[Rfam]
RNA: ZMP/ZTP riboswitch aptamer (pfl RNA motif)
Organism: Xylanimonas oleitrophica
RNA sequence: UGGACCCGUCGCGACUGGCGCACGCCGGUUCCCCGCCCGAGGGCGGGGGCCGGGCAGGUGGGUCACCACCGGGGAGCGACACGCUGUAUGACGACGACGGGUCGUUCGCCUGGGCCCGUGUC
Numbered sequence: 001u002g003g004a005c006c007c008g009u010c011g012c013g014a015c016u017g018g019c020g021c022a023c024g025c026c027g028g029u030u031c032c033c034c035g036c037c038c039g040a041g042g043g044c045g046g047g048g049g050c051c052g053g054g055c056a057g058g059u060g061g062g063u064c065a066c067c068a069c070c071g072g073g074g075a076g077c078g079a080c081a082c083g084c085u086g087u088a089u090g091a092c093g094a095c096g097a098c099g100g101g102u103c104g105u106u107c108g109c110c111u112g113g114g115c116c117c118g119u120g121u122c
Stems, first nucleotide, its partner, number of pairs: 003085001005083001008080005015073002017110004058069004099117005
Dot-bracket structure: ..(.(..(((((..(([[[[.....................................((((....))))..))..)))))..).).............(((((...]]]]..))))).....